[Rfam]
The record is a 119-nucleotide sequence from Cylindrospermum stagnale, which matches "c-di-AMP riboswitch aptamer (ydaO/yuaA leader)" in Rfam. A reference for the family is Barrick et al. (2004), "New RNA motifs suggest an expanded scope for riboswitches in bacterial genetic control", Proc Natl Acad Sci U S A. The organism belongs to Cylindrospermum stagnale, within Bacteria. A search with the family's covariance model found it, with a score of 57 bits.
RNA sequence: AAUUCAAAUUUAUCAAAUCUAAAUUUGAAGCGGAGGAACCAAAAUAUGGGGCUAAUCUUAAUGAGAGACACCUUCCAGUCUUAGCCCGUCAGCUAACUCCGUCGGCAAUGGAAGGAACC
Dot-bracket structure: ..........(.((...(.(......).)((((((....((.....))(((.....(((...)))((((........))))...))).........)))))).)).)............